Background
The family of this 369-nucleotide RNA from Weissella oryzae is "Bacterial RNase P class B". Rfam classes the family as a ribozyme. From the family's description: Ribonuclease P (RNase P) is a ubiquitous endoribonuclease, found in archaea, bacteria and eukarya as well as chloroplasts and mitochondria. Its best characterised activity is the generation of mature 5'-ends of tRNAs by cleaving the 5'-leader elements of precursor-tRNAs. Cellular RNase Ps are ribonucleoproteins. RNA from bacterial RNase Ps retains its catalytic activity in the absence of the protein subunit, i.e. it is a ribozyme. Taxonomically the source falls in Weissella oryzae (Bacteria, Bacillati, Bacilli, Lactobacillaceae).
[Rfam]
RNA sequence: AUUAGUGGGUAAUUGCGUAUCGUUUUUUCGAUAUGAGGAAAGUCCAUGCUCGCACUGGCUGCGAUGCCAGUAGUGUUCGUGCUAGGUGAAAAAAUAAGCCUAGGCAGCUACGAUGUAGUUGACGGCCAACGAAAGGCCUAAGGGAAACUAUGGCUGAUUAGUUGUUAAGGUGCCACAGUGACGAACCACCAAAGAAAUGCGGUGGGUGGAACGCGGUAAACCCCUCGAGCGGGCAACCCAAACUUUGGUAGGGGCGCUUGACCUAGUAAACUGAAAUGAUGGUCGGGGAGGCAGUAAUGCCUGAGAUAGAUGAUUGCCACCAAAGUUGAAUCGCCAAUUCAGCUUUGGAACAAAACAUGGCUUAUAGCU
Numbered sequence: 001a002u003u004a005g006u007g008g009g010u011a012a013u014u015g016c017g018u019a020u021c022g023u024u025u026u027u028u029c030g031a032u033a034u035g036a037g038g039a040a041a042g043u044c045c046a047u048g049c050u051c052g053c054a055c056u057g058g059c060u061g062c063g064a065u066g067c068c069a070g071u072a073g074u075g076u077u078c079g080u081g082c083u084a085g086g087u088g089a090a091a092a093a094a095u096a097a098g099c100c101u102a103g104g105c106a107g108c109u110a111c112g113a114u115g116u117a118g119u120u121g122a123c124g125g126c127c128a129a130c131g132a133a134a135g136g137c138c139u140a141a142g143g144g145a146a147a148c149u150a151u152g153g154c155u156g157a158u159u160a161g162u163u164g165u166u167a168a169g170g171u172g173c174c175a176c177a178g179u180g181a182c183g184a185a186c187c188a189c190c191a192a193a194g195a196a197a198u199g200c201g202g203u204g205g206g207u208g209g210a211a212c213g214c215g216g217u218a219a220a221c222c223c224c225u226c227g228a229g230c231g232g233g234c235a236a237c238c239c240a241a242a243c244u245u246u247g248g249u250a251g252g253g254g255c256g257c258u259u260g261a262c263c264u265a266g267u268a269a270a271c272u273g274a275a276a277u278g279a280u281g282g283u284c285g286g287g288g289a290g291g292c293a294g295u296a297a298u299g300c301c302u303g304a305g306a307u308a309g310a311u312g313a314u315u316g317c318c319a320c321c322a323a324a325g326u327u328g329a330a331u332c333g334c335c336a337a338u339u340c341a342g343c344u345u346u347g348g349a350a351c352a353a354a355a356c357a358u359g360g361c362u363u364a365u366a367g368c369u
Stems, first nucleotide, its partner, number of pairs: 004369003007365001008318007016035006040363003044360005049233005054071006077228003081224001082103006104123001105121006124223002127164004135155004142149002170221002172217003186205005193198001237253003257287007289302005320348012